[Rfam]
The family of this 188-nucleotide sequence from Setaria italica is "Small nucleolar RNA Z112". Clan: SNORD49 clan. It is annotated as a C/D-box small nucleolar RNA. Rfam 15.1 lists 427 matches to the family in 103 species. The base pairs follow the family's consensus structure, which was predicted with PFOLD. Gene Ontology terms of the family: nucleolus and RNA processing.

RNA sequence: GUCCCAGUGAAGAUCUCAAGACCUACCGAUAGGAAGUGCCGUUUGACACUGUUAGCAGCAGCUGCUUCUCUCAGCUGCAGGUGUUCAUCCUUAUACCAUAACCUUUGUGGUUUGGUCUGGGGGUGGGGCUCCCAUCUGCCAUUGCUUGAUUCAGCUGUGGUGUGAUUUAAAUUGGGUCUCUGAGGGAU
Numbered sequence: 001g002u003c004c005c006a007g008u009g010a011a012g013a014u015c016u017c018a019a020g021a022c023c024u025a026c027c028g029a030u031a032g033g034a035a036g037u038g039c040c041g042u043u044u045g046a047c048a049c050u051g052u053u054a055g056c057a058g059c060a061g062c063u064g065c066u067u068c069u070c071u072c073a074g075c076u077g078c079a080g081g082u083g084u085u086c087a088u089c090c091u092u093a094u095a096c097c098a099u100a101a102c103c104u105u106u107g108u109g110g111u112u113u114g115g116u117c118u119g120g121g122g123g124u125g126g127g128g129c130u131c132c133c134a135u136c137u138g139c140c141a142u143u144g145c146u147u148g149a150u151u152c153a154g155c156u157g158u159g160g161u162g163u164g165a166u167u168u169a170a171a172u173u174g175g176g177u178c179u180c181u182g183a184g185g186g187a188u
Base pairs, nucleotide, nucleotide: 001188002187003186004185005184077139078138079137080136081135082134083133084127085126086125087124088123089122090121095116096115097114098113100112101111102110103109